[Rfam]
RNA sequence: GAUAUUUGAGGUGGUAAAUUUCGUAGCGACCACACGCCGAUGGUAACGACAGGGGCGUUUGCUCUGAGAGAUGCAGGAGAAUGCUACGCCUGCCAAAUAUC
Dot-bracket structure: ((((((((..(((((........[[[[[))))).((((...............)))...........)....(((((....]]]]]..)))))))))))))
Numbered sequence: 001g002a003u004a005u006u007u008g009a010g011g012u013g014g015u016a017a018a019u020u021u022c023g024u025a026g027c028g029a030c031c032a033c034a035c036g037c038c039g040a041u042g043g044u045a046a047c048g049a050c051a052g053g054g055g056c057g058u059u060u061g062c063u064c065u066g067a068g069a070g071a072u073g074c075a076g077g078a079g080a081a082u083g084c085u086a087c088g089c090c091u092g093c094c095a096a097a098u099a100u101c
Stems, first nucleotide, its partner, number of pairs: 001101008011033005024086005035068001036056003073093005

This 101-nucleotide RNA belongs to the Rfam family "skipping-rope RNA".
By type it is a small RNA.
The base pairs follow the family's consensus structure, which is taken from published work.